This 73-nucleotide sequence from Medicago truncatula belongs to the Rfam family "MIR5272 microRNA precursor family". Gene Ontology terms of the family: RISC complex and miRNA-mediated post-transcriptional gene silencing.

[Rfam]
RNA sequence: UUUGGUGUGAAUUGCUUUAUGUUUGGAUACGCUUAUUACAAGUGAUUUUUAUGAGUAGAUAUUGUUUGGAUAG
Numbered sequence: 001u002u003u004g005g006u007g008u009g010a011a012u013u014g015c016u017u018u019a020u021g022u023u024u025g026g027a028u029a030c031g032c033u034u035a036u037u038a039c040a041a042g043u044g045a046u047u048u049u050u051a052u053g054a055g056u057a058g059a060u061a062u063u064g065u066u067u068g069g070a071u072a073g
Stems, first nucleotide, its partner, number of pairs: 011060003016055003021052002025048004030044005
Dot-bracket structure: ..........(((..(((..((..((((.(((((.....)))))))))..)))))..))).............